The record is a 78-nucleotide RNA from Protea cynaroides, which matches "Small nucleolar RNA Z155" in Rfam. For this family Rfam cites "The high diversity of snoRNAs in plants: identification and comparative study of 120 snoRNA genes from Oryza sativa" (Chen et al., Nucleic Acids Res, 2003). Its family is annotated with nucleolus and RNA processing in the Gene Ontology. A search with the family's covariance model found it, with a score of 57 bits.
RNA sequence: CGUUGAUGUGAUGAUAAUUGAUUCGGAAAAAUACAAGAUGUCGACGAAUGAAUUCAGACUACAAUUAUCUGAUCAAUG
Numbered sequence: 001c002g003u004u005g006a007u008g009u010g011a012u013g014a015u016a017a018u019u020g021a022u023u024c025g026g027a028a029a030a031a032u033a034c035a036a037g038a039u040g041u042c043g044a045c046g047a048a049u050g051a052a053u054u055c056a057g058a059c060u061a062c063a064a065u066u067a068u069c070u071g072a073u074c075a076a077u078g
Base pairs, nucleotide, nucleotide: 001078002077003076004075005074006073